[Rfam]
RNA sequence: GGAUGGAACUCUGGAGAGCCCCUGAUCAGCAGGGCGCCGAAGGUGCAAAUCGGUAAGUUUCGCUUAUCGAUGAAACUCUCAGGCAAAAGGACAGAGCAUAUUGG
Numbered sequence: 001g002g003a004u005g006g007a008a009c010u011c012u013g014g015a016g017a018g019c020c021c022c023u024g025a026u027c028a029g030c031a032g033g034g035c036g037c038c039g040a041a042g043g044u045g046c047a048a049a050u051c052g053g054u055a056a057g058u059u060u061c062g063c064u065u066a067u068c069g070a071u072g073a074a075a076c077u078c079u080c081a082g083g084c085a086a087a088a089g090g091a092c093a094g095a096g097c098a099u100a101u102u103g104g
Stems, first nucleotide, its partner, number of pairs: 006099001009096005020034004036084003039080002043078001045076001049071010
The family of this 104-nucleotide RNA sequence from Anaerospora hongkongensis is "Glycine riboswitch aptamer".